[Rfam]
RNA sequence: AUCCUUGCGCUUGGGGCAGUGUCGCAGACUGUGAGGUCUAACCGAGUCGCGACAGUGCCAGUUGAAAACUUAUUCCAUCCCCGUCGGUCGUCGUUCUUCGGAACGCUUCCGCAAUUUCUGUCGGGCCUUUUGGC
Numbered sequence: 001a002u003c004c005u006u007g008c009g010c011u012u013g014g015g016g017c018a019g020u021g022u023c024g025c026a027g028a029c030u031g032u033g034a035g036g037u038c039u040a041a042c043c044g045a046g047u048c049g050c051g052a053c054a055g056u057g058c059c060a061g062u063u064g065a066a067a068a069c070u071u072a073u074u075c076c077a078u079c080c081c082c083g084u085c086g087g088u089c090g091u092c093g094u095u096c097u098u099c100g101g102a103a104c105g106c107u108u109c110c111g112c113a114a115u116u117u118c119u120g121u122c123g124g125g126c127c128u129u130u131u132g133g134c
Stems, first nucleotide, its partner, number of pairs: 021053005027048003035043003083112001085111003090106001092105005125134003
Dot-bracket structure: ....................(((((.(((.....(((...)))..)))))))).............................(.(((..(.(((((....))))))..))))............(((....)))
RNA: U4 spliceosomal RNA
Organism: Chlamydomonas reinhardtii